The family of this 77-nucleotide sequence from Alligator sinensis is "Mammalian CPEB3 ribozyme". Lineage of the source: Eukaryota > Chordata > Sauropsida > Sauria > Alligator. A search with the family's covariance model found it, with a score of 37 bits.
Nucleotides: 077
Base pairs, nucleotide, nucleotide: 016043017042018041021077022076023075025073026072027071028040029039030038049066050065051064052063054061
Number, partner (000 for none) and nucleotide at each position: 001000u002000g003000u004000c005000a006000c007000c008000a009000c010000c011000a012000u013000a014000a015000a016043g017042c018041c019000a020000u021077a022076g023075c024000a025073g026072a027071a028040g029039c030038a031000u032000u033000c034000a035000u036000a037000g038030u039029g040028u041018g042017g043016c044000c045000c046000u047000g048000u049066c050065a051064g052063a053000g054061u055000c056000u057000a058000a059000c060000a061054a062000a063052u064051u065050u066049g067000c068000a069000a070000a071027u072026u073025c074000a075023g076022c077021u